[Rfam]
RNA sequence: CAGAAGCAGGGGCUCCUUCCAGCCUAAAGCAGAAGCCAAGCCAUCUUUUUGCUUGCCGCACUUCUUGCUUUUGCUUGCUUUGGACUGAAGGGAGCUCCUAAUUCUU
Numbered sequence: 001c002a003g004a005a006g007c008a009g010g011g012g013c014u015c016c017u018u019c020c021a022g023c024c025u026a027a028a029g030c031a032g033a034a035g036c037c038a039a040g041c042c043a044u045c046u047u048u049u050u051g052c053u054u055g056c057c058g059c060a061c062u063u064c065u066u067g068c069u070u071u072u073g074c075u076u077g078c079u080u081u082g083g084a085c086u087g088a089a090g091g092g093a094g095c096u097c098c099u100a101a102u103u104c105u106u
Base pairs, nucleotide, nucleotide: 008099009098010097011096012095013094014093015092016091017090018089021086022085024083025082026081027080028079029078030077031076032075
Overview:
A member of the RNA family "MIR319 microRNA precursor family" from Ananas comosus, 106 nucleotides long. A search with the family's covariance model found it, with a score of 68 bits. Its family is annotated with miRNA-mediated post-transcriptional gene silencing and RISC complex in the Gene Ontology. Taxonomically the source falls in Ananas (Eukaryota, Viridiplantae, Spermatophyta, Liliopsida).